[Rfam]
RNA: M-box riboswitch aptamer (ykoK leader)
RNA sequence: GUGAAAAAUCGGUAGGUGAGGCUACCAUAAGGAUACGGAUGACUACCGCAAAGCAGUGGAGACACUACUCGUUGGUCAACAGUCCUGAUCGCCAAGGUCAAGACUAAGCUCAUUUCAUCGCCUUAUGGAGUUAAAGCUUGAACGGUAAAUGCUUGCU
Dot-bracket structure: ....(..((.(.[.(((..(((..((((((((......((((...(.((.....((((....))))....)).).......(((...(((....])))...))).....)))).......)))))))).)))...)))....).....))..)....
Numbered sequence: 001g002u003g004a005a006a007a008a009u010c011g012g013u014a015g016g017u018g019a020g021g022c023u024a025c026c027a028u029a030a031g032g033a034u035a036c037g038g039a040u041g042a043c044u045a046c047c048g049c050a051a052a053g054c055a056g057u058g059g060a061g062a063c064a065c066u067a068c069u070c071g072u073u074g075g076u077c078a079a080c081a082g083u084c085c086u087g088a089u090c091g092c093c094a095a096g097g098u099c100a101a102g103a104c105u106a107a108g109c110u111c112a113u114u115u116c117a118u119c120g121c122c123u124u125a126u127g128g129a130g131u132u133a134a135a136g137c138u139u140g141a142a143c144g145g146u147a148a149a150u151g152c153u154u155g156c157u
Stems, first nucleotide, its partner, number of pairs: 005153001008150002011143001013095001015138003020132003025128008039113004046074001048072002055066004082104003088098003